[Rfam]
RNA: Enterobacterial sRNA STnc240
Organism: Klebsiella sp. RIT-PI-d
RNA sequence: AUUGUUUAGGGCAAAAUACGCCGCCUGUAAAAAAUGAAGCUAACCGACGUUAAACGCGUCGGUUAUUUUUUUGC
Numbered sequence: 001a002u003u004g005u006u007u008a009g010g011g012c013a014a015a016a017u018a019c020g021c022c023g024c025c026u027g028u029a030a031a032a033a034a035u036g037a038a039g040c041u042a043a044c045c046g047a048c049g050u051u052a053a054a055c056g057c058g059u060c061g062g063u064u065a066u067u068u069u070u071u072u073g074c
Base pairs, nucleotide, nucleotide: 011021012020041065042064043063044062045061046060047059048058049057
Dot-bracket structure: ..........((.......))...................(((((((((.......))))))))).........